[Rfam]
RNA sequence: CUGGCUGUUCGAUCAACCGUUCCCUACCCGGACAUGCGGAGCUGGUAACGACUCGGCGUGAAGCUUCCGAACCAAAAUAGUAGCCGCCGUCUGUCGGGUACCUCGAAUCGUGGAGUAACGCAGAAUCCGGCAGCACGAAGGCGGAGAGGCGC
Numbered sequence: 001c002u003g004g005c006u007g008u009u010c011g012a013u014c015a016a017c018c019g020u021u022c023c024c025u026a027c028c029c030g031g032a033c034a035u036g037c038g039g040a041g042c043u044g045g046u047a048a049c050g051a052c053u054c055g056g057c058g059u060g061a062a063g064c065u066u067c068c069g070a071a072c073c074a075a076a077a078u079a080g081u082a083g084c085c086g087c088c089g090u091c092u093g094u095c096g097g098g099u100a101c102c103u104c105g106a107a108u109c110g111u112g113g114a115g116u117a118a119c120g121c122a123g124a125a126u127c128c129g130g131c132a133g134c135a136c137g138a139a140g141g142c143g144g145a146g147a148g149g150c151g152c
Base pairs, nucleotide, nucleotide: 002019003018004017006015007014028069030067031066032065033060034059035058036057037056039054040053041052043050044049084097085096086095088093099122101120108114109113126145127144128143129142131140
The family of this 152-nucleotide sequence from Paraburkholderia humisilvae is "Group II catalytic intron D1-D4-7". Rfam links the family to the GO term Group II intron splicing. Group II introns are found in rRNA, tRNA and mRNA of organelles in fungi, plants and protists, and also in mRNA in bacteria. The match comes from Rfam's covariance-model search (62 bits). Pairs were carried over by alignment from the consensus structure. NCBI's taxonomy places the organism under Bacteria, Pseudomonadati, Betaproteobacteria, Burkholderiaceae, Paraburkholderia.